A member of the RNA family "U11 spliceosomal RNA" from Araneus ventricosus, 127 nucleotides long. The match comes from Rfam's covariance-model search (52 bits). By type it is a spliceosomal small nuclear RNA.

[Rfam]
RNA sequence: GAAAAGAGUGUUUUCCAGCUGAAUGCCUCAUAGUCUCUUUAAGGCUGUGCAGAAUUUCUAGCAAGAUAUUCUGAAUACACAAUUUUUUGAAACUGAGGUGCUAGUUGACAGAGCAUUUGGCGCCUCU
Numbered sequence: 001g002a003a004a005a006g007a008g009u010g011u012u013u014u015c016c017a018g019c020u021g022a023a024u025g026c027c028u029c030a031u032a033g034u035c036u037c038u039u040u041a042a043g044g045c046u047g048u049g050c051a052g053a054a055u056u057u058c059u060a061g062c063a064a065g066a067u068a069u070u071c072u073g074a075a076u077a078c079a080c081a082a083u084u085u086u087u088u089g090a091a092a093c094u095g096a097g098g099u100g101c102u103a104g105u106u107g108a109c110a111g112a113g114c115a116u117u118u119g120g121c122g123c124c125u126c127u
Base pairs, nucleotide, nucleotide: 008078009077010076011075012074017028018027020025029049030048031047032046033045034044035043036042050073051072052071053070054069055068096125097124098123099122100121101120102119103118104117109113